[Rfam]
RNA sequence: UCUGUGGCUUAGGUAGUUUCAUGUUGUUGGGAUUGAGUUUUGAACUCGGCAACAAGAAACUGCCUGAGUUACAUC
Numbered sequence: 001u002c003u004g005u006g007g008c009u010u011a012g013g014u015a016g017u018u019u020c021a022u023g024u025u026g027u028u029g030g031g032a033u034u035g036a037g038u039u040u041u042g043a044a045c046u047c048g049g050c051a052a053c054a055a056g057a058a059a060c061u062g063c064c065u066g067a068g069u070u071a072c073a074u075c
Base pairs, nucleotide, nucleotide: 003073004072005071006070007069008068009067010066011065012064013063014062015061016060017059018058019057022054023053024052025051026050027049028048029047030046031045
Record summary
The family of this 75-nucleotide RNA from Macaca mulatta is "mir-196 microRNA precursor family". Pairs were carried over by alignment from the consensus structure, which was predicted with PFOLD. Rfam's curators put it in the seed alignment.